[Rfam]
Small nucleolar RNA ACA64: a 128-nucleotide RNA from Nannospalax galili.
A search with the family's covariance model found it, with a score of 113 bits.
A reference for the family is Schattner et al. (2006), "A computational screen for mammalian pseudouridylation guide H/ACA RNAs", RNA.
The family has 30 seed sequences and 9,537 matches in Rfam 15.1.

Nucleotides: 128
Base pairs, nucleotide, nucleotide: 005052006051007050008049009048010047013044014043015042021036022035023034024033067121069119070118071117072116073115078109079108080107081106082105087099088098
Number, partner (000 for none) and nucleotide at each position: 001000g002000u003000u004000u005052g006051u007050u008049g009048a010047a011000a012000a013044u014043c015042a016000c017000c018000c019000c020000u021036g022035g023034u024033c025000u026000u027000a028000g029000u030000c031000a032000u033024g034023g035022c036021c037000u038000g039000g040000g041000u042015u043014g044013a045000g046000a047010u048009u049008c050007g051006g052005c053000a054000u055000c056000c057000a058000g059000a060000g061000c062000c063000a064000c065000c066000a067121g068000g069119g070118g071117c072116c073115u074000c075000a076000g077000c078109u079108c080107a081106c082105c083000u084000c085000c086000g087099g088098c089000u090000u091000c092000c093000a094000c095000a096000g097000u098088g099087u100000g101000g102000g103000a104000g105082g106081g107080u108079g109078a110000a111000a112000c113000c114000c115073a116072g117071g118070c119069c120000c121067u122000g123000a124000c125000a126000a127000g128000c